[Rfam]
RNA sequence: GCAGAUGGCCGGAUGGUCGCUCUGCCGGGUUUCGGCCCGGCGGGGAGGAAAGUCCGGGCUCCACGGAAACACGGUGCCGGGUAACGCCCGGCGGGGGCGACCCCAGGGACAGUGCCACAGAAAGCAAACCGCCCGGCUCCGGCCGGGUAAGGGUGAAAGGGUGCGGUAAGAGCGCACCGCGCGGCCGGCAACGGUCGCGGCACGGUAAACCCCACCGGGAGCAAGACCGAAUAGGGGCGGGGCGGUUCAUGGGAAACCAUGGGCCGACAGGCGUUUCCGCCUGCCGCCCGGGUUGGUCGCGCGAGGCGACGGGCGACCGUCGUCCCAGAGGAAUGGCCAUCCCCCGACCCGCCGUCCGCAAGGAUACGGGGCCGGGGACAGAACCCGGCUUACAGGCCAUCUGCCGCC
Numbered sequence: 001g002c003a004g005a006u007g008g009c010c011g012g013a014u015g016g017u018c019g020c021u022c023u024g025c026c027g028g029g030u031u032u033c034g035g036c037c038c039g040g041c042g043g044g045g046a047g048g049a050a051a052g053u054c055c056g057g058g059c060u061c062c063a064c065g066g067a068a069a070c071a072c073g074g075u076g077c078c079g080g081g082u083a084a085c086g087c088c089c090g091g092c093g094g095g096g097g098c099g100a101c102c103c104c105a106g107g108g109a110c111a112g113u114g115c116c117a118c119a120g121a122a123a124g125c126a127a128a129c130c131g132c133c134c135g136g137c138u139c140c141g142g143c144c145g146g147g148u149a150a151g152g153g154u155g156a157a158a159g160g161g162u163g164c165g166g167u168a169a170g171a172g173c174g175c176a177c178c179g180c181g182c183g184g185c186c187g188g189c190a191a192c193g194g195u196c197g198c199g200g201c202a203c204g205g206u207a208a209a210c211c212c213c214a215c216c217g218g219g220a221g222c223a224a225g226a227c228c229g230a231a232u233a234g235g236g237g238c239g240g241g242g243c244g245g246u247u248c249a250u251g252g253g254a255a256a257c258c259a260u261g262g263g264c265c266g267a268c269a270g271g272c273g274u275u276u277c278c279g280c281c282u283g284c285c286g287c288c289c290g291g292g293u294u295g296g297u298c299g300c301g302c303g304a305g306g307c308g309a310c311g312g313g314c315g316a317c318c319g320u321c322g323u324c325c326c327a328g329a330g331g332a333a334u335g336g337c338c339a340u341c342c343c344c345c346g347a348c349c350c351g352c353c354g355u356c357c358g359c360a361a362g363g364a365u366a367c368g369g370g371g372c373c374g375g376g377g378a379c380a381g382a383a384c385c386c387g388g389c390u391u392a393c394a395g396g397c398c399a400u401c402u403g404c405c406g407c408c
Stems, first nucleotide, its partner, number of pairs: 001404010011393001012341007020045009050391003054388005059221004068276002072217005077091005092106001093104004107212002112210002114206003129152002131148007160178006179201001180199008225298004235289006268283005305324008